Rfam assigns this 88-nucleotide sequence from Nyctereutes procyonoides to the family "mir-7 microRNA precursor family". Pairs were carried over by alignment from the consensus structure, which was predicted with PFOLD.
[Rfam]
RNA sequence: UGGCUUGCCCCAUCUGGAAGACUAGUGAUUUUGUUGUUGUCUCACUGCAUCCAACAACAAGUCCCAGUCUGCCACAUGGUGCUGGCCA
Numbered sequence: 001u002g003g004c005u006u007g008c009c010c011c012a013u014c015u016g017g018a019a020g021a022c023u024a025g026u027g028a029u030u031u032u033g034u035u036g037u038u039g040u041c042u043c044a045c046u047g048c049a050u051c052c053a054a055c056a057a058c059a060a061g062u063c064c065c066a067g068u069c070u071g072c073c074a075c076a077u078g079g080u081g082c083u084g085g086c087c088a
Stems, first nucleotide, its partner, number of pairs: 002087004007082002010079004015074003019070005025065001027063005033058006
On this family, see Lagos-Quintana et al., Science 2001: "Identification of novel genes coding for small expressed RNAs". Rfam describes the family as follows. This family represents the microRNA (miRNA) precursor mir-7. Rfam 15.1 lists 2,589 matches to the family in 797 species.